Overview
The record is a 62-nucleotide sequence from Sarcophilus harrisii, which matches "Selenocysteine insertion sequence 1" in Rfam. Gene Ontology term of the family: selenocysteine incorporation.

[Rfam]
RNA sequence: UUCACAGGAUGAUAGCAUCUUCUUAAACCCUUGAGGAAGGGAAGGUGCUUGAAAGUCGUGAA
Numbered sequence: 001u002u003c004a005c006a007g008g009a010u011g012a013u014a015g016c017a018u019c020u021u022c023u024u025a026a027a028c029c030c031u032u033g034a035g036g037a038a039g040g041g042a043a044g045g046u047g048c049u050u051g052a053a054a055g056u057c058g059u060g061a062a
Stems, first nucleotide, its partner, number of pairs: 001062005014049010029036002
By type it is a cis-regulatory element. A search with the family's covariance model found it, with a score of 43 bits. Pairs were carried over by alignment from the consensus structure, which is taken from published work.